[Rfam]
RNA sequence: CCUAAGGGGUUCCGCGAGGCCCCGUGAGGCGGCAGGCCGAAAUUCGCGUCCAAACUUUUCUUUUAAGGUGGACGUUAUG
Number, nucleotide and partner (000 for none) at each position: 001c000002c000003u000004a000005a000006g023007g022008g021009g020010u019011u000012c000013c000014g000015c000016g000017a000018g000019g010020c009021c008022c007023c006024g000025u000026g000027a000028g000029g000030c000031g000032g000033c000034a000035g000036g000037c000038c000039g000040a000041a000042a000043u000044u000045c000046g075047c074048g073049u072050c071051c070052a000053a000054a000055c000056u000057u000058u000059u000060c000061u000062u000063u000064u000065a000066a000067g000068g000069u000070g051071g050072a049073c048074g047075u046076u000077a000078u000079g000
Background
Shown here is a 79-nucleotide RNA from Elstera litoralis, a member of the family "chrB-a RNA". By type it is a cis-regulatory element. It scores 48 bits against the family's covariance model.